[Rfam]
RNA sequence: GUGCUUGAAAUCCGGCGUUGGAACACCGAUAUUCGAUGUGUUCCCGCAAGGGGACUAUGGACAUAAACGCGCGUGUAAUAAGCGGCUCGGACCCGGGGGCGGUACCCGGCGGCUCCACCAGAUACCCUGUCAUUUGCAGGAACAUGGGGCCGAAACAGGAUCGACGAACGUCUAAAGACGUCUGCUUUGUCUCGGUGAGAUACCACCGUUAUCGGUUCAAAUAGUAUAGUUGCAAAUGACAACCAUGCUCCGGUCGCAAUGGCUGCGUAAGCAGUCGGAGUUACCGAAACUUAAGCCCUGAGGCCUAGCAGCGUCAGGCGGGGUUCGCAGGCACCUGGCAACAGAAGCCUGCAUU
Numbered sequence: 001g002u003g004c005u006u007g008a009a010a011u012c013c014g015g016c017g018u019u020g021g022a023a024c025a026c027c028g029a030u031a032u033u034c035g036a037u038g039u040g041u042u043c044c045c046g047c048a049a050g051g052g053g054a055c056u057a058u059g060g061a062c063a064u065a066a067a068c069g070c071g072c073g074u075g076u077a078a079u080a081a082g083c084g085g086c087u088c089g090g091a092c093c094c095g096g097g098g099g100c101g102g103u104a105c106c107c108g109g110c111g112g113c114u115c116c117a118c119c120a121g122a123u124a125c126c127c128u129g130u131c132a133u134u135u136g137c138a139g140g141a142a143c144a145u146g147g148g149g150c151c152g153a154a155a156c157a158g159g160a161u162c163g164a165c166g167a168a169c170g171u172c173u174a175a176a177g178a179c180g181u182c183u184g185c186u187u188u189g190u191c192u193c194g195g196u197g198a199g200a201u202a203c204c205a206c207c208g209u210u211a212u213c214g215g216u217u218c219a220a221a222u223a224g225u226a227u228a229g230u231u232g233c234a235a236a237u238g239a240c241a242a243c244c245a246u247g248c249u250c251c252g253g254u255c256g257c258a259a260u261g262g263c264u265g266c267g268u269a270a271g272c273a274g275u276c277g278g279a280g281u282u283a284c285c286g287a288a289a290c291u292u293a294a295g296c297c298c299u300g301a302g303g304c305c306u307a308g309c310a311g312c313g314u315c316a317g318g319c320g321g322g323g324u325u326c327g328c329a330g331g332c333a334c335c336u337g338g339c340a341a342c343a344g345a346a347g348c349c350u351g352c353a354u355u
Stems, first nucleotide, its partner, number of pairs: 040055005059192005069185002071181004083170002087167003093109005110152007193208004199218002202216003321336004327352006

Rfam assigns this 355-nucleotide RNA sequence from Marivita hallyeonensis to the family "Alphaproteobacteria transfer-messenger RNA". Lineage of the source: Bacteria > Pseudomonadota > Alphaproteobacteria > Rhodobacterales > Marivita. The family's RNA type in Rfam is non-coding RNA gene. From the family's description: Bacterial tmRNA, also known as 10Sa RNA or SsrA, is named for its dual tRNA and mRNA-like properties.